A member of the RNA family "Clostridiales-1 RNA", 180 nucleotides long. The family's RNA type in Rfam is small RNA. It is one of the family's seed sequences.
RNA sequence: AUGAUGUAAGUGUCAAAAGUAUAAAUUGCGUUUGUGCUCGCACAAAUAAGCAAUUUGUACUUAUUGACACGCCGAACACCGAAAACGAAAUCACAUGGUGUGAACAUGCCAUUUUAUGGGAGUCUGAGGUGUUCGACGAUUGCGCGGAUUGCAUAGCAUUGGAGCAUCCGGUUCCUUCGU
Numbered sequence: 001a002u003g004a005u006g007u008a009a010g011u012g013u014c015a016a017a018a019g020u021a022u023a024a025a026u027u028g029c030g031u032u033u034g035u036g037c038u039c040g041c042a043c044a045a046a047u048a049a050g051c052a053a054u055u056u057g058u059a060c061u062u063a064u065u066g067a068c069a070c071g072c073c074g075a076a077c078a079c080c081g082a083a084a085a086c087g088a089a090a091u092c093a094c095a096u097g098g099u100g101u102g103a104a105c106a107u108g109c110c111a112u113u114u115u116a117u118g119g120g121a122g123u124c125u126g127a128g129g130u131g132u133u134c135g136a137c138g139a140u141u142g143c144g145c146g147g148a149u150u151g152c153a154u155a156g157c158a159u160u161g162g163a164g165c166a167u168c169c170g171g172u173u174c175c176u177u178c179g180u
Base pairs, nucleotide, nucleotide: 002179003178004177006175008173011069012068013067014066017062018061019060020059021058022057023056024055025054026053027052028051029050030047032045033044034043035042036041073135074134075133076132077131078130079129080128083125085123086122090117091116093114095112096111097110098109099108100107101106137170138169141166142165143164148160150158151157